The record is a 142-nucleotide sequence from Sorex araneus, which matches "Small nucleolar RNA SNORA79" in Rfam. Rfam 15.1 lists 944 matches to the family in 375 species. Gene Ontology terms of the family: nucleolus and RNA processing. About the family: ACA65 (SNORA79) is a member of the H/ACA class of snoRNAs that guide the sites of modification of uridines to pseudouridines. This snoRNA was identified by computational screening and its expression in mouse experimentally verified by Northern blot and primer extension analysis. By type it is an H/ACA-box small nucleolar RNA.
[Rfam]
RNA sequence: UGAUGACGUUCCUCUCAUUGCCUAGAGCAUUGGCACUGGGAUUUUAGUUCAUCAUACAUCAAACUUGAUUUUCUUCACUCAGAGAAUAUUGGGAUAAUGGGAUUAUCUGUGUAUUCUCUGAAAUUUGCGGAAUCAAACACUG
Numbered sequence: 001u002g003a004u005g006a007c008g009u010u011c012c013u014c015u016c017a018u019u020g021c022c023u024a025g026a027g028c029a030u031u032g033g034c035a036c037u038g039g040g041a042u043u044u045u046a047g048u049u050c051a052u053c054a055u056a057c058a059u060c061a062a063a064c065u066u067g068a069u070u071u072u073c074u075u076c077a078c079u080c081a082g083a084g085a086a087u088a089u090u091g092g093g094a095u096a097a098u099g100g101g102a103u104u105a106u107c108u109g110u111g112u113a114u115u116c117u118c119u120g121a122a123a124u125u126u127g128c129g130g131a132a133u134c135a136a137a138c139a140c141u142g
Stems, first nucleotide, its partner, number of pairs: 001054006007047001013041005019035004067134006079121010092108005
Dot-bracket structure: (((((((.....(((((.((((.........)))).))))).....).))))))............((((((......((((((((((...(((((.......)))))...)))))))))).......))))))........